Notes:
A member of the RNA family "Selenocysteine transfer RNA" from Aquimarina algiphila, 86 nucleotides long. The base pairs follow the family's consensus structure, which is taken from published work.

Nucleotides: 086
Stems, first nucleotide, its partner, number of pairs: 001086007011026004016021001028044005048060003064078004
Number, partner (000 for none) and nucleotide at each position: 001086g002085g003084a004083a005082g006081g007080a008000c009000a010000a011026g012025c013024c014023a015000a016021u017000a018000g019000g020000u021016g022000g023014u024013g025012g026011c027000c028044g029043c030042a031041g032040u033000c034000u035000u036000g037000a038000a039000a040032a041031c042030u043029g044028u045000u046000a047000g048060g049059a050058g051000a052000u053000a054000a055000c056000g057000a058050c059049u060048c061000g062000u063000g064078u065077g066076g067075g068000u069000u070000c071000g072000a073000u074000u075067c076066c077065c078064a079000c080007u081006c082005c083004u084003u085002c086001c

Annotation:
The family has 109 seed sequences and 4,211 matches in Rfam 15.1. On this family, see Lowe and Eddy, Nucleic Acids Res 1997: "tRNAscan-SE: a program for improved detection of transfer RNA genes in genomic sequence". Lineage of the source: Bacteria > Pseudomonadati > Flavobacteriales > Flavobacteriaceae > Aquimarina.